[Rfam]
RNA sequence: UGAUCGGGCGUCACCCUUGGGCGGGAUGACUAGAAUAGAUCGAACACUCUGUCUCAAUGGGGCGUGUCGCCGUGACCCCAACGGUGGAUACG
Numbered sequence: 001u002g003a004u005c006g007g008g009c010g011u012c013a014c015c016c017u018u019g020g021g022c023g024g025g026a027u028g029a030c031u032a033g034a035a036u037a038g039a040u041c042g043a044a045c046a047c048u049c050u051g052u053c054u055c056a057a058u059g060g061g062g063c064g065u066g067u068c069g070c071c072g073u074g075a076c077c078c079c080a081a082c083g084g085u086g087g088a089u090a091c092g
Stems, first nucleotide, its partner, number of pairs: 001042005010030004015025002063092005068086005
Shown here is a 92-nucleotide RNA sequence, a member of the family "Rhodo-rpoB RNA". The family's RNA type in Rfam is cis-regulatory element. Pairs were carried over by alignment from the consensus structure, which is taken from published work.